A member of the RNA family "Group II catalytic intron D1-D4-7" from Pseudomonas corrugata, 148 nucleotides long. From the family's description: Group II introns are found in rRNA, tRNA and mRNA of organelles in fungi, plants and protists, and also in mRNA in bacteria. On this family, see Bonen and Vogel, Trends Genet 2001: "The ins and outs of group II introns". The base pairs follow the family's consensus structure.
RNA sequence: CUCGUUGUGCGACCGACGACAGCCUAGGAAAACAUGCGUCAUUGGCAACGAUGAGGUGUGAAGCUUUUCCAACAACGUAGCCCCCAAACGGGUCUGCACUUGCUGCGAGGCAAUGCAGAGAUGCUCGGAGCAGUACCGGGUUGAGGCG
Dot-bracket structure: .((((((......))))))........((((((((((.((((((....)))))).)))))....))))).............(((....)))((((......((....)).....))))...((((((.......)))))).......